Rfam assigns this 309-nucleotide RNA sequence from Dromas ardeola to the family "Small Cajal body-specific RNA 7". The source organism's lineage runs through Eukaryota, Deuterostomia, Dipnotetrapodomorpha, Neognathae and Dromas. The literature on the family includes a 2002 paper in EMBO J by Darzacq et al., "Cajal body-specific small nuclear RNAs: a novel class of 2'-O-methylation and pseudouridylation guide RNAs". The pairing is the family consensus, mapped onto this sequence.
[Rfam]
RNA sequence: UGGAAGUGAUGAAAUAGAGAUAAUUGGAUGUCUCUUUGAAUGGAGUGUGUGUGGUAAAUGGAAUUUAAACCAAGUGGGGUGGGAUGCGGGGAAUGUGUGUGUGCGCGUGUAUAGAAGAGGCUUCAAACGGGGGCACUGAUAAUGCAGUGCUGAUUCCGGAGUGCAUCUGAGGCAUGUUGUUAAGUUCUAGGGUGCCACAUUACAACAUUGCCGAUGAUUAAAGCCCAAAACAAGCCCACCAAGACAAGCCUAAGCAUCCUAAAUCUCUAACAGGUUCAUUAAUGACAGUGAUCCUGUGAUCUGAUCUGA
Numbered sequence: 001u002g003g004a005a006g007u008g009a010u011g012a013a014a015u016a017g018a019g020a021u022a023a024u025u026g027g028a029u030g031u032c033u034c035u036u037u038g039a040a041u042g043g044a045g046u047g048u049g050u051g052u053g054g055u056a057a058a059u060g061g062a063a064u065u066u067a068a069a070c071c072a073a074g075u076g077g078g079g080u081g082g083g084a085u086g087c088g089g090g091g092a093a094u095g096u097g098u099g100u101g102u103g104c105g106c107g108u109g110u111a112u113a114g115a116a117g118a119g120g121c122u123u124c125a126a127a128c129g130g131g132g133g134c135a136c137u138g139a140u141a142a143u144g145c146a147g148u149g150c151u152g153a154u155u156c157c158g159g160a161g162u163g164c165a166u167c168u169g170a171g172g173c174a175u176g177u178u179g180u181u182a183a184g185u186u187c188u189a190g191g192g193u194g195c196c197a198c199a200u201u202a203c204a205a206c207a208u209u210g211c212c213g214a215u216g217a218u219u220a221a222a223g224c225c226c227a228a229a230a231c232a233a234g235c236c237c238a239c240c241a242a243g244a245c246a247a248g249c250c251u252a253a254g255c256a257u258c259c260u261a262a263a264u265c266u267c268u269a270a271c272a273g274g275u276u277c278a279u280u281a282a283u284g285a286c287a288g289u290g291a292u293c294c295u296g297u298g299a300u301c302u303g304a305u306c307u308g309a
Base pairs, nucleotide, nucleotide: 001308002307003306004305175207176206177205178204179203180202182200184195185194187192